[Rfam]
RNA sequence: AUCUUAUCAAGAGUGGUGGAGGGAAAGGCCCUAUGAAGCCCAGCAACCAGUAUGUUUUAUUUACAUAUAUGGUGCUAAAUCCUACAACAAGUGUUGAAAGAUAAGCA
Numbered sequence: 001a002u003c004u005u006a007u008c009a010a011g012a013g014u015g016g017u018g019g020a021g022g023g024a025a026a027g028g029c030c031c032u033a034u035g036a037a038g039c040c041c042a043g044c045a046a047c048c049a050g051u052a053u054g055u056u057u058u059a060u061u062u063a064c065a066u067a068u069a070u071g072g073u074g075c076u077a078a079a080u081c082c083u084a085c086a087a088c089a090a091g092u093g094u095u096g097a098a099a100g101a102u103a104a105g106c107a
Base pairs, nucleotide, nucleotide: 003105004104005103006102007101008100013041015040016039017038021031022030023029026083027082028081042076043075044074045073047072048071050068051067052066053065054064055063080099085096086095087094088093
SAM riboswitch aptamer (S box leader): a 107-nucleotide sequence from Clostridium frigidicarnis. The source organism's lineage runs through Bacteria, Bacillota, Clostridia, Clostridiaceae and Clostridium.